[Rfam]
RNA sequence: AGGCAGCCCCUUUGUCCGAUCUCAAUGUCAAUGGAGGUGUUGCGUUGCUCGGAGAAGAAAAUCUUUUGGUCUUCAGAUCGGUUGAGGUGGGGAGGUCACUUCCCCCCGUUGAGGCUGGUCUAGUAAAUCUUAAGAACAUA
Numbered sequence: 001a002g003g004c005a006g007c008c009c010c011u012u013u014g015u016c017c018g019a020u021c022u023c024a025a026u027g028u029c030a031a032u033g034g035a036g037g038u039g040u041u042g043c044g045u046u047g048c049u050c051g052g053a054g055a056a057g058a059a060a061a062u063c064u065u066u067u068g069g070u071c072u073u074c075a076g077a078u079c080g081g082u083u084g085a086g087g088u089g090g091g092g093a094g095g096u097c098a099c100u101u102c103c104c105c106c107c108g109u110u111g112a113g114g115c116u117g118g119u120c121u122a123g124u125a126a127a128u129c130u131u132a133a134g135a136a137c138a139u140a
Base pairs, nucleotide, nucleotide: 002041003040004039005038007037008036009034010033012031013030014029016027063134064133065132068129069128070127075121076120077119078118079117081115082114083113086107087106
A member of the RNA family "Small nucleolar RNA snoR77" from Zea mays, 140 nucleotides long. The family has 5 seed sequences and 649 matches in Rfam 15.1. Gene Ontology terms of the family: RNA processing and nucleolus. Lineage of the source: Eukaryota > Viridiplantae > Tracheophyta > Mesangiospermae > Zea.